[Rfam]
Shown here is a 108-nucleotide RNA from Curvibacter sp. AEP1-3, a member of the family "SAH (S-adenosyl-L-homocysteine) riboswitch aptamer". Gene Ontology terms of the family: S-adenosylhomocysteine metabolic process and regulation of gene expression. NCBI's taxonomy places the organism under Bacteria, Pseudomonadota, Burkholderiales, Comamonadaceae, Curvibacter. It scores 48 bits against the family's covariance model.
RNA sequence: GCUUCCGAGGAGCGUUGCAGCCCGCCAAGUGCCCAUACCGGCACCGCGAGUGAGGCUCGGAACCCACGAUGCGCCCUGCAUCGUGUCCCCCAACGGCGCUCACCCACU
Numbered sequence: 001g002c003u004u005c006c007g008a009g010g011a012g013c014g015u016u017g018c019a020g021c022c023c024g025c026c027a028a029g030u031g032c033c034c035a036u037a038c039c040g041g042c043a044c045c046g047c048g049a050g051u052g053a054g055g056c057u058c059g060g061a062a063c064c065c066a067c068g069a070u071g072c073g074c075c076c077u078g079c080a081u082c083g084u085g086u087c088c089c090c091c092a093a094c095g096g097c098g099c100u101c102a103c104c105c106a107c108u
Stems, first nucleotide, its partner, number of pairs: 003062006021050001023048003